The family of this 58-nucleotide RNA from Microcaecilia unicolor is "U7 small nuclear RNA".
RNA sequence: CUAUGAUUGUAGCUCUUUUAGUAUUUGUCUAGUAGGUUUUCCUUAAAGGAAAGCCCCC
Numbered sequence: 001c002u003a004u005g006a007u008u009g010u011a012g013c014u015c016u017u018u019u020a021g022u023a024u025u026u027g028u029c030u031a032g033u034a035g036g037u038u039u040u041c042c043u044u045a046a047a048g049g050a051a052a053g054c055c056c057c058c
Base pairs, nucleotide, nucleotide: 035055036054037053038052039051040050041049042048
A reference for the family is Spycher et al. (1994), "3' end processing of mouse histone pre-mRNA: evidence for additional base-pairing between U7 snRNA and pre-mRNA", Nucleic Acids Res. The family's consensus secondary structure was predicted with PFOLD. The organism belongs to Microcaecilia, within Eukaryota.